The family of this 59-nucleotide sequence from Pseudooceanicola algae is "terC RNA". Lineage of the source: Bacteria > Pseudomonadati > Pseudomonadota > Rhodobacterales > Pseudooceanicola. By type it is a cis-regulatory element.
RNA sequence: UGCAGCGACCGGGCCCCUCUGACGGAAGUGACGGCGCUUCCGUGAUGUCGGCGCUGCGA
Numbered sequence: 001u002g003c004a005g006c007g008a009c010c011g012g013g014c015c016c017c018u019c020u021g022a023c024g025g026a027a028g029u030g031a032c033g034g035c036g037c038u039u040c041c042g043u044g045a046u047g048u049c050g051g052c053g054c055u056g057c058g059a
Base pairs, nucleotide, nucleotide: 006053007052009051010050011049012048022043023042024041025040026039027038028037029036